[Rfam]
This 85-nucleotide RNA sequence from Aquilegia coerulea belongs to the Rfam family "Small nucleolar RNA snoR53Y".
The organism belongs to Aquilegia, within Eukaryota.
The family is grouped with related families in Rfam's "snoR53 clan".
The family's RNA type in Rfam is C/D-box small nucleolar RNA.
RNA sequence: GUUCCCUGUGAUGUUUCAAACCAUGCUAAUACUGAGACUCAUCAUUGAUGAAUAUCUUUUUUCAAUGAAUAUUUCUGAGGGAACC
Numbered sequence: 001g002u003u004c005c006c007u008g009u010g011a012u013g014u015u016u017c018a019a020a021c022c023a024u025g026c027u028a029a030u031a032c033u034g035a036g037a038c039u040c041a042u043c044a045u046u047g048a049u050g051a052a053u054a055u056c057u058u059u060u061u062u063c064a065a066u067g068a069a070u071a072u073u074u075c076u077g078a079g080g081g082a083a084c085c
Base pairs, nucleotide, nucleotide: 001084002083003082004081005080006079007078